[Rfam]
RNA: MIR2912 microRNA precursor family
RNA sequence: UCUAGAACUCCAGAUAUGGGUAAACUUCUGAGCAAUGUUUGGGCUGGAUUGCAGGACAGAUUCUGGCUUCUCUUUUGGGGCCAAAUUUUGGAUUUGAAAACGGUAGAUUUGGGUCUUCCACUAUUCAUGAACAUUGUAGGCCUAUUUCUUAUCUUUCUAUC
Numbered sequence: 001u002c003u004a005g006a007a008c009u010c011c012a013g014a015u016a017u018g019g020g021u022a023a024a025c026u027u028c029u030g031a032g033c034a035a036u037g038u039u040u041g042g043g044c045u046g047g048a049u050u051g052c053a054g055g056a057c058a059g060a061u062u063c064u065g066g067c068u069u070c071u072c073u074u075u076u077g078g079g080g081c082c083a084a085a086u087u088u089u090g091g092a093u094u095u096g097a098a099a100a101c102g103g104u105a106g107a108u109u110u111g112g113g114u115c116u117u118c119c120a121c122u123a124u125u126c127a128u129g130a131a132c133a134u135u136g137u138a139g140g141c142c143u144a145u146u147u148c149u150u151a152u153c154u155u156u157c158u159a160u161c
Base pairs, nucleotide, nucleotide: 003159004158005157006156007155009151012149013148014147016145017144018143019142020141021138022137024135027133035128036127037126046124048122050120051119053117054116055115056114057113059110060109062107063106064105065104067103068102073097074096077093